[Rfam]
RNA sequence: UGAAAAACAAAAGCGCCAGGACUUAAAUCAAGGUCGGACAAUAGUGAUUUAAGUUGACGAGGACAGGGUUUAUCGAGACUUCGGCGGAUGCCCUGCGGUGUAUCACCACCGAUAGAGAUCUUACAAAGACUCCAAGUGAUUGGAGGGACAAAUAAGAUCGGGUGAAACAA
Numbered sequence: 001u002g003a004a005a006a007a008c009a010a011a012a013g014c015g016c017c018a019g020g021a022c023u024u025a026a027a028u029c030a031a032g033g034u035c036g037g038a039c040a041a042u043a044g045u046g047a048u049u050u051a052a053g054u055u056g057a058c059g060a061g062g063a064c065a066g067g068g069u070u071u072a073u074c075g076a077g078a079c080u081u082c083g084g085c086g087g088a089u090g091c092c093c094u095g096c097g098g099u100g101u102a103u104c105a106c107c108a109c110c111g112a113u114a115g116a117g118a119u120c121u122u123a124c125a126a127a128g129a130c131u132c133c134a135a136g137u138g139a140u141u142g143g144a145g146g147g148a149c150a151a152a153u154a155a156g157a158u159c160g161g162g163u164g165a166a167a168c169a170a
Base pairs, nucleotide, nucleotide: 020055021054022053023052024051025050026049027048029046064095065094066093067092068091073084074083075082076081096111097110098109099108100107117159118158119157120156121155122154130145131144132143133142134141135140
This 170-nucleotide RNA sequence from Thermotalea metallivorans belongs to the Rfam family "glmS glucosamine-6-phosphate activated ribozyme aptamer". NCBI's taxonomy places the organism under Bacteria, Bacillota, Peptostreptococcales, Thermotaleaceae, Thermotalea.